[Rfam]
RNA: mir-2011 microRNA precursor family
Organism: Strongylocentrotus purpuratus
RNA sequence: CCUAGUCUCCCUGCAGUCACUACCACACCUUCGGUGGCUUUUUAUAGCUUCACCAAGGUGUGCUAGUGAUGACAGGGGGAUGGG
Numbered sequence: 001c002c003u004a005g006u007c008u009c010c011c012u013g014c015a016g017u018c019a020c021u022a023c024c025a026c027a028c029c030u031u032c033g034g035u036g037g038c039u040u041u042u043u044a045u046a047g048c049u050u051c052a053c054c055a056a057g058g059u060g061u062g063c064u065a066g067u068g069a070u071g072a073c074a075g076g077g078g079g080a081u082g083g084g
Base pairs, nucleotide, nucleotide: 001084002083003082004081006080007079008078009077010076011075012074013073016070017069018068019067020066021065022064024062025061026060027059028058029057030056031055033054034053035052036051037050
Dot-bracket structure: ((((.((((((((..(((((((.((((((((.(((((............))))))))))))).)))))))..))))))))))))